Rfam assigns this 69-nucleotide RNA sequence from Anaeromonas frigoriresistens to the family "Fluoride riboswitch aptamer (crcB RNA motif)".
A search with the family's covariance model found it, with a score of 38 bits.
[Rfam]
RNA sequence: UAAUAUAUAGGCGAUGGAGCUCGCCUUUGAGUAUUACAUAUAAAUGUAAUUGAUGGCUCCUACUUAAGG
Numbered sequence: 001u002a003a004u005a006u007a008u009a010g011g012c013g014a015u016g017g018a019g020c021u022c023g024c025c026u027u028u029g030a031g032u033a034u035u036a037c038a039u040a041u042a043a044a045u046g047u048a049a050u051u052g053a054u055g056g057c058u059c060c061u062a063c064u065u066a067a068g069g
Stems, first nucleotide, its partner, number of pairs: 010025004016060006